RNA: ZMP/ZTP riboswitch aptamer (pfl RNA motif)
RNA sequence: AAAAAGAUGCGGAACUGGCGGAGUGACGUGGGUUACCACAGGGGACCGUAUCUUGGGGAGAGAAUAGCCGACCGCCUGGGCAAGAUAU
Numbered sequence: 001a002a003a004a005a006g007a008u009g010c011g012g013a014a015c016u017g018g019c020g021g022a023g024u025g026a027c028g029u030g031g032g033u034u035a036c037c038a039c040a041g042g043g044g045a046c047c048g049u050a051u052c053u054u055g056g057g058g059a060g061a062g063a064a065u066a067g068c069c070g071a072c073c074g075c076c077u078g079g080g081c082a083a084g085a086u087a088u
Stems, first nucleotide, its partner, number of pairs: 004054009015043002017076005028039004065083001067081003